[Rfam]
RNA sequence: CGUCAAGAGUCUUGGCACCGUUUUGGUGAGCUGUUUUCCUUUGCCUGCUAAAAGGUGAAAGAUGAUG
Numbered sequence: 001c002g003u004c005a006a007g008a009g010u011c012u013u014g015g016c017a018c019c020g021u022u023u024u025g026g027u028g029a030g031c032u033g034u035u036u037u038c039c040u041u042u043g044c045c046u047g048c049u050a051a052a053a054g055g056u057g058a059a060a061g062a063u064g065a066u067g
Stems, first nucleotide, its partner, number of pairs: 009063003012059002016057004021053006028046001030044002033041001
This 67-nucleotide RNA sequence from Pararhizobium antarcticum belongs to the Rfam family "S-element". The match comes from Rfam's covariance-model search (73 bits). The base pairs follow the family's consensus structure, which is taken from published work. The organism belongs to Pararhizobium, within Bacteria. Its family is annotated with translation regulator activity and mRNA transcription in the Gene Ontology. The literature on the family includes a 2004 paper in Mol Microbiol by Venkova-Canova et al., "Two discrete elements are required for the replication of a repABC plasmid: an antisense RNA and a stem-loop structure".